[Rfam]
RNA sequence: CUCUUAUCCAGAGAGGUGGAGGGACUGGCCCUAUGAAGCCCGGCAACCUGUGUUUCAAAACACAAGGUGCCAAUUCCUGCGGUAUAAGAUAUACCGAGAGAUGAGAG
Numbered sequence: 001c002u003c004u005u006a007u008c009c010a011g012a013g014a015g016g017u018g019g020a021g022g023g024a025c026u027g028g029c030c031c032u033a034u035g036a037a038g039c040c041c042g043g044c045a046a047c048c049u050g051u052g053u054u055u056c057a058a059a060a061c062a063c064a065a066g067g068u069g070c071c072a073a074u075u076c077c078u079g080c081g082g083u084a085u086a087a088g089a090u091a092u093a094c095c096g097a098g099a100g101a102u103g104a105g106a107g
Stems, first nucleotide, its partner, number of pairs: 001107008013041001015040003021031003025079001027077002042071004047067002049064004075099001080096006
RNA: SAM riboswitch aptamer (S box leader)